[Rfam]
RNA: Glycine riboswitch aptamer
RNA sequence: CGACCCGCAACGGGAGAGUCCUCGAUCGUUCGAGGCGCCGAAGGAGCAACCCUCCCCGGGAAUCUCUCAGGCACAGGUACCGCUGCGGCGAG
Dot-bracket structure: .....((((.(((......((((........)))).(((((..(((...((......))....))))).))).......))).)))).....
Numbered sequence: 001c002g003a004c005c006c007g008c009a010a011c012g013g014g015a016g017a018g019u020c021c022u023c024g025a026u027c028g029u030u031c032g033a034g035g036c037g038c039c040g041a042a043g044g045a046g047c048a049a050c051c052c053u054c055c056c057c058g059g060g061a062a063u064c065u066c067u068c069a070g071g072c073a074c075a076g077g078u079a080c081c082g083c084u085g086c087g088g089c090g091a092g
Stems, first nucleotide, its partner, number of pairs: 006087004011082003020035004037072003040068002044066003050059002